[Rfam]
RNA: HNH endonuclease-associated RNA and ORF (HEARO) RNA
RNA sequence: GUCAACUACCCCGCCCUAACGGGCGGAGCUUGAAAGAAGCUCGGGUUGACCAGACCGAGCGGUAACCAACCCGCUACGUUGUACGCAGUGCCCAAGACCGACCCUGCCGUGCUUCCUCAGCGGCAGGCUCUCGAAGCCCCGGUUGCAGACAAGCGAAAGGGUAAGCACGAAACGGAUCGAGGCAGAUGGCCGGCGUACGACAUGGUCGAGGGGAGCGGGUC
Numbered sequence: 001g002u003c004a005a006c007u008a009c010c011c012c013g014c015c016c017u018a019a020c021g022g023g024c025g026g027a028g029c030u031u032g033a034a035a036g037a038a039g040c041u042c043g044g045g046u047u048g049a050c051c052a053g054a055c056c057g058a059g060c061g062g063u064a065a066c067c068a069a070c071c072c073g074c075u076a077c078g079u080u081g082u083a084c085g086c087a088g089u090g091c092c093c094a095a096g097a098c099c100g101a102c103c104c105u106g107c108c109g110u111g112c113u114u115c116c117u118c119a120g121c122g123g124c125a126g127g128c129u130c131u132c133g134a135a136g137c138c139c140c141g142g143u144u145g146c147a148g149a150c151a152a153g154c155g156a157a158a159g160g161g162u163a164a165g166c167a168c169g170a171a172a173c174g175g176a177u178c179g180a181g182g183c184a185g186a187u188g189g190c191c192g193g194c195g196u197a198c199g200a201c202a203u204g205g206u207c208g209a210g211g212g213g214a215g216c217g218g219g220u221c
Stems, first nucleotide, its partner, number of pairs: 001050007010028001012025002015022002029039003053207005058075005078201009088191001098133001103127008113215006136183003140179005